[Rfam]
RNA: Small nucleolar RNA SNORD28
Organism: Marmota monax
RNA sequence: GUCAGAUGAUUUGAAUCAGUAUGCUGAUGAUCUGUGAGGUACAAUGGUAAAUAGCAUGUUAGAGUUCUGAUGGCA
Numbered sequence: 001g002u003c004a005g006a007u008g009a010u011u012u013g014a015a016u017c018a019g020u021a022u023g024c025u026g027a028u029g030a031u032c033u034g035u036g037a038g039g040u041a042c043a044a045u046g047g048u049a050a051a052u053a054g055c056a057u058g059u060u061a062g063a064g065u066u067c068u069g070a071u072g073g074c075a
Stems, first nucleotide, its partner, number of pairs: 001074004
Dot-bracket structure: ((((..................................................................)))).